The record is a 130-nucleotide RNA sequence from Allosphingosinicella deserti, which matches "Y RNA-like" in Rfam. Pairs were carried over by alignment from the consensus structure, which is taken from published work. Rfam classes the family as a small RNA. It scores 72 bits against the family's covariance model. In Deinococcus radiodurans Rsr is tethered via Y RNA to the exoribonuclease PNPase and channels single-stranded RNA into the PNPase cavity. Rsr and Y RNA enhance degradation of structured RNAs by PNPase.
[Rfam]
RNA sequence: GCGGCGAAUGCCGGAAGGACUACAUCGUCUGAUAAACGCCAGGUCGCGGGUUCGAGUCCCGCCGGAUUCCUCGGGAUCCGUAGCUCAGGGGUAGAGCGGGAGCGUCCUUCCAAAACUUCGUCGCCGCGAA
Number, nucleotide and partner (000 for none) at each position: 001g000002c126003g125004g124005c123006g122007a121008a000009u000010g000011c000012c000013g111014g110015a109016a108017g107018g106019a105020c000021u000022a000023c100024a000025u000026c000027g000028u000029c000030u000031g000032a000033u000034a000035a000036a000037c000038g000039c099040c098041a000042g000043g000044u000045c000046g062047c061048g060049g059050g058051u000052u000053c091054g000055a000056g000057u000058c050059c049060c048061g047062c046063c080064g079065g078066a077067u076068u075069c000070c000071u000072c000073g000074g000075g068076a067077u066078c065079c064080g063081u000082a000083g097084c096085u095086c094087a000088g000089g000090g000091g053092u000093a000094g086095a085096g084097c083098g040099g039100g023101a000102g000103c000104g000105u019106c018107c017108u016109u015110c014111c013112a000113a000114a000115a000116c000117u000118u000119c000120g000121u007122c006123g005124c004125c003126g002127c000128g000129a000130a000